[Rfam]
Nucleotides: 078
Base pairs, nucleotide, nucleotide: 013046014045015044016043018041021078022077024075025074026073027072028040029039030038050067051066052065053064054063055062
Number, partner (000 for none) and nucleotide at each position: 001000c002000a003000u004000u005000c006000a007000g008000u009000c010000c011000a012000g013046g014045g015044u016043g017000g018041c019000c020000u021078a022077g023000c024075a025074g026073a027072a028040g029039c030038g031000g032000u033000c034000a035000c036000a037000u038030u039029g040028u041018g042000g043016u044015g045014c046013c047000u048000g049000u050067c051066a052065a053064a054063u055062u056000c057000u058000u059000a060000c061000a062055a063054a064053u065052u066051u067050g068000u069000g070000a071000u072027u073026u074025u075024u076000a077022c078021u
The record is a 78-nucleotide RNA from Geotrypetes seraphini, which matches "Mammalian CPEB3 ribozyme" in Rfam.
A search with the family's covariance model found it, with a score of 41 bits.
Lineage of the source: Eukaryota > Deuterostomia > Vertebrata > Tetrapoda > Geotrypetes.